[Rfam]
RNA sequence: AUGAAGGCGGUAAGAGAGUCCCACUCUCCACUACGGGCGCCGAAGGGGCAAGGCCGGACAGGCUGAAACUCUCAGGCACAAGGAUUACCGUUGGACG
Numbered sequence: 001a002u003g004a005a006g007g008c009g010g011u012a013a014g015a016g017a018g019u020c021c022c023a024c025u026c027u028c029c030a031c032u033a034c035g036g037g038c039g040c041c042g043a044a045g046g047g048g049c050a051a052g053g054c055c056g057g058a059c060a061g062g063c064u065g066a067a068a069c070u071c072u073c074a075g076g077c078a079c080a081a082g083g084a085u086u087a088c089c090g091u092u093g094g095a096c097g
Base pairs, nucleotide, nucleotide: 006092007091008090009089010088011087012086013085020037021036022035039077040076041075042073043072046071047070048069052064053063
Dot-bracket structure: .....((((((((......(((............))).(((((..(((...((.........))....))))).))).......)))))))).....

Shown here is a 97-nucleotide RNA sequence from Cloacibacillus sp. An23, a member of the family "Glycine riboswitch aptamer". The base pairs follow the family's consensus structure. The match comes from Rfam's covariance-model search (65 bits).